Annotation:
Shown here is a 132-nucleotide RNA sequence from Patagioenas fasciata, a member of the family "Small nucleolar RNA SNORA22". A search with the family's covariance model found it, with a score of 132 bits. ACA22 is a member of the H/ACA class of snoRNA that guide the sites of modification of uridines to pseudouridines. Rfam 15.1 lists 883 matches to the family in 606 species.

RNA sequence: UUGCACAGUGAACACCCAAGUGUGCUUUGUAGUUCCCUUGGUUUUAAUUCUGUGCUAAAGUAAUCUGUGCUUUUCCUCUGCAUUGGAAGGAUUUGUGUUCCUUUUACAUGUAUUCAGAAGGACAGUACAUUU
Numbered sequence: 001u002u003g004c005a006c007a008g009u010g011a012a013c014a015c016c017c018a019a020g021u022g023u024g025c026u027u028u029g030u031a032g033u034u035c036c037c038u039u040g041g042u043u044u045u046a047a048u049u050c051u052g053u054g055c056u057a058a059a060g061u062a063a064u065c066u067g068u069g070c071u072u073u074u075c076c077u078c079u080g081c082a083u084u085g086g087a088a089g090g091a092u093u094u095g096u097g098u099u100c101c102u103u104u105u106a107c108a109u110g111u112a113u114u115c116a117g118a119a120g121g122a123c124a125g126u127a128c129a130u131u132u
Stems, first nucleotide, its partner, number of pairs: 003055006010049001014045001016041005022035001024033003057073006077118004081110003085105007